[Rfam]
RNA sequence: CAAGCUCUUAUUAGUAGUGCGUGCGCCACAAAAGCAAGAGGCGCCAUGCACGAAACUGAGGAGCGAGAGUU
Numbered sequence: 001c002a003a004g005c006u007c008u009u010a011u012u013a014g015u016a017g018u019g020c021g022u023g024c025g026c027c028a029c030a031a032a033a034g035c036a037a038g039a040g041g042c043g044c045c046a047u048g049c050a051c052g053a054a055a056c057u058g059a060g061g062a063g064c065g066a067g068a069g070u071u
Stems, first nucleotide, its partner, number of pairs: 004064006017051007024043004
The family of this 71-nucleotide RNA from Trypanosoma congolense is "Trypanosomatid snoRNA TB11Cs2H1". The organism belongs to Trypanosoma congolense, within Eukaryota. Rfam's curators put it in the seed alignment. The family has 7 seed sequences and 72 matches in Rfam 15.1. It is annotated as an H/ACA-box small nucleolar RNA. For this family Rfam cites "A genome-wide analysis of C/D and H/ACA-like small nucleolar RNAs in Trypanosoma brucei reveals a trypanosome-specific pattern of rRNA modification" (Liang et al., RNA, 2005).